[Rfam]
RNA: RNA anti-toxin A
RNA sequence: UAAUGAAGAUAGAAAAAGGGUUAAGCGACAACUUAACCCCAAUGUAGAACCGUUUAAAAGACGGUGGCUUGUAAUUGCUAUAUUAAGAA
Numbered sequence: 001u002a003a004u005g006a007a008g009a010u011a012g013a014a015a016a017a018g019g020g021u022u023a024a025g026c027g028a029c030a031a032c033u034u035a036a037c038c039c040c041a042a043u044g045u046a047g048a049a050c051c052g053u054u055u056a057a058a059a060g061a062c063g064g065u066g067g068c069u070u071g072u073a074a075u076u077g078c079u080a081u082a083u084u085a086a087g088a089a
Base pairs, nucleotide, nucleotide: 022035023034024033025032049065050064051063052062053061054060